This 125-nucleotide RNA sequence from Carassius auratus belongs to the Rfam family "U4atac minor spliceosomal RNA".
On this family, see Shukla et al., Nucleic Acids Res 2002: "Domains of human U4atac snRNA required for U12-dependent splicing in vivo".
Lineage of the source: Eukaryota > Bilateria > Euteleostomi > Clupeocephala > Carassius.
Rfam's curators write: U4atac is an essential component of the minor U12-type spliceosome complex which is required for removal of the rarer class of eukaryotic introns (AT-AC, U12-type).
Gene Ontology terms of the family: spliceosomal tri-snRNP complex assembly, mRNA 5'-splice site recognition and pre-mRNA 5'-splice site binding.
The match comes from Rfam's covariance-model search (70 bits).

RNA sequence: ACUUCCCUUGUCAUGGGGUUGAGGACUAUCCAAUGAGCGAAAAGCAAGAACAGGCCUGCUAACACAAUAUCAACACAAAUGCAUCACCUGACUUCAAGUCAGAUAAUGGUGCAAUUUUUGGCAAC
Numbered sequence: 001a002c003u004u005c006c007c008u009u010g011u012c013a014u015g016g017g018g019u020u021g022a023g024g025a026c027u028a029u030c031c032a033a034u035g036a037g038c039g040a041a042a043a044g045c046a047a048g049a050a051c052a053g054g055c056c057u058g059c060u061a062a063c064a065c066a067a068u069a070u071c072a073a074c075a076c077a078a079a080u081g082c083a084u085c086a087c088c089u090g091a092c093u094u095c096a097a098g099u100c101a102g103a104u105a106a107u108g109g110u111g112c113a114a115u116u117u118u119u120g121g122c123a124a125c
Stems, first nucleotide, its partner, number of pairs: 006018004021059001023057002026053002029050001031048001037045002081112006088102005